RNA sequence: CUAGAUAUGGAGACAUGGUGCCAAAGACGAUUGCAGGGAAGAUCUUCGGCUCCAUCUGUUCCCUGAGUGGAGUUCUGGUGAUUGCUUUACCCGUCCCUGUAAUUGUUUCUAAC
Numbered sequence: 001c002u003a004g005a006u007a008u009g010g011a012g013a014c015a016u017g018g019u020g021c022c023a024a025a026g027a028c029g030a031u032u033g034c035a036g037g038g039a040a041g042a043u044c045u046u047c048g049g050c051u052c053c054a055u056c057u058g059u060u061c062c063c064u065g066a067g068u069g070g071a072g073u074u075c076u077g078g079u080g081a082u083u084g085c086u087u088u089a090c091c092c093g094u095c096c097c098u099g100u101a102a103u104u105g106u107u108u109c110u111a112a113c
Stems, first nucleotide, its partner, number of pairs: 002112001003110002007106004013100003017096002020094002036076004048062002
Dot-bracket structure: .(((..((((..(((.((.((..............((((........((...........))..........))))................)))).)))..))))..)).).
RNA: Potassium channel RNA editing signal